[Rfam]
RNA sequence: GCCCGUGAUGGCAUGAAUCUUUGAGACCUGAGAAUUUUCUUCCUUGAUGAAAGAUCACAAGCAUUAUCCCUGAGGGC
Numbered sequence: 001g002c003c004c005g006u007g008a009u010g011g012c013a014u015g016a017a018u019c020u021u022u023g024a025g026a027c028c029u030g031a032g033a034a035u036u037u038u039c040u041u042c043c044u045u046g047a048u049g050a051a052a053g054a055u056c057a058c059a060a061g062c063a064u065u066a067u068c069c070c071u072g073a074g075g076g077c
Stems, first nucleotide, its partner, number of pairs: 002075002031045001032042002
RNA: Small nucleolar RNA R66